[Rfam]
RNA sequence: CGGUCGGCAGUUCACCCAGGCGUUGCCGCGCUGUUCCCAGCGAGCUAAACCUGCCA
Numbered sequence: 001c002g003g004u005c006g007g008c009a010g011u012u013c014a015c016c017c018a019g020g021c022g023u024u025g026c027c028g029c030g031c032u033g034u035u036c037c038c039a040g041c042g043a044g045c046u047a048a049a050c051c052u053g054c055c056a
Stems, first nucleotide, its partner, number of pairs: 002016003029042004
The record is a 56-nucleotide sequence from Piscinibacter aquaticus, which matches "COG3860 RNA" in Rfam.
The family's consensus secondary structure is taken from published work.
By type it is a cis-regulatory element.